This 63-nucleotide RNA from Bombyx mori belongs to the Rfam family "mir-2774 microRNA precursor family". For this family Rfam cites "MicroRNAs of Bombyx mori identified by Solexa sequencing" (Liu et al., BMC Genomics, 2010). Gene Ontology terms of the family: RISC complex and miRNA-mediated post-transcriptional gene silencing.

Nucleotides: 063
Base pairs, nucleotide, nucleotide: 004060005059006058015053016052017051020049021048022047023046024045025044026043027042028041029040
Number, partner (000 for none) and nucleotide at each position: 001000a002000c003000a004060a005059c006058a007000u008000u009000c010000g011000g012000a013000c014000c015053g016052u017051c018000g019000g020049u021048c022047u023046a024045c025044c026043g027042a028041g029040c030000a031000a032000u033000a034000u035000c036000a037000c038000u039000c040029g041028c042027u043026c044025g045024g046023u047022g048021g049020a050000a051017g052016a053015u054000c055000c056000u057000u058006u059005g060004u061000c062000g063000u